Shown here is an 84-nucleotide sequence from Danionella cerebrum, a member of the family "mir-143 microRNA precursor family". The family has 30 seed sequences and 657 matches in Rfam 15.1.
[Rfam]
RNA sequence: UGGUCUUCAGCCCGAGGUGCAGUGCUGCAUCUCUGGUCAACAUGGAGUCUGAGAUGAAGCACUGUAGCUCAGGAGGUUGACAUU
Numbered sequence: 001u002g003g004u005c006u007u008c009a010g011c012c013c014g015a016g017g018u019g020c021a022g023u024g025c026u027g028c029a030u031c032u033c034u035g036g037u038c039a040a041c042a043u044g045g046a047g048u049c050u051g052a053g054a055u056g057a058a059g060c061a062c063u064g065u066a067g068c069u070c071a072g073g074a075g076g077u078u079g080a081c082a083u084u
Base pairs, nucleotide, nucleotide: 011073012072016068018066019065020064021063022062023061024060025059026058028056029055030054031053032052033051035049036048037046038045